Rfam assigns this 77-nucleotide RNA from Octopus sinensis to the family "mir-980 microRNA precursor family". The match comes from Rfam's covariance-model search (48 bits). The family has 8 seed sequences and 121 matches in Rfam 15.1. The family's consensus secondary structure was predicted with RNAalifold.
RNA sequence: AGUUUCUCGUUGCCGUUCAUCAGACAGUUUUUGCUAUAAUUAUAGCAAAACUGUCUGAUGAACGGCAACGAGAAGCU
Numbered sequence: 001a002g003u004u005u006c007u008c009g010u011u012g013c014c015g016u017u018c019a020u021c022a023g024a025c026a027g028u029u030u031u032u033g034c035u036a037u038a039a040u041u042a043u044a045g046c047a048a049a050a051c052u053g054u055c056u057g058a059u060g061a062a063c064g065g066c067a068a069c070g071a072g073a074a075g076c077u
Stems, first nucleotide, its partner, number of pairs: 004074012017061004023055002030049005